[Rfam]
RNA sequence: AUGCCUGCAUAUGAUGAAUAUUAUGUUGGUAGGGACAUCUGAGAGCCUGAUGAAUUGCCAACAUAUCUGAGCUGGGCAU
Numbered sequence: 001a002u003g004c005c006u007g008c009a010u011a012u013g014a015u016g017a018a019u020a021u022u023a024u025g026u027u028g029g030u031a032g033g034g035a036c037a038u039c040u041g042a043g044a045g046c047c048u049g050a051u052g053a054a055u056u057g058c059c060a061a062c063a064u065a066u067c068u069g070a071g072c073u074g075g076g077c078a079u
Base pairs, nucleotide, nucleotide: 001079002078003077004076005075

This 79-nucleotide sequence from Dryobates pubescens belongs to the Rfam family "Small nucleolar RNA SNORD74". Rfam links the family to the GO terms nucleolus and RNA processing. A search with the family's covariance model found it, with a score of 71 bits. The family's consensus secondary structure was predicted with PFOLD. The source organism's lineage runs through Eukaryota, Euteleostomi, Sauropsida, Neoaves and Dryobates. The literature on the family includes a 2002 paper in Mol Cell Biol by Galardi et al., "Purified box C/D snoRNPs are able to reproduce site-specific 2'-O-methylation of target RNA in vitro".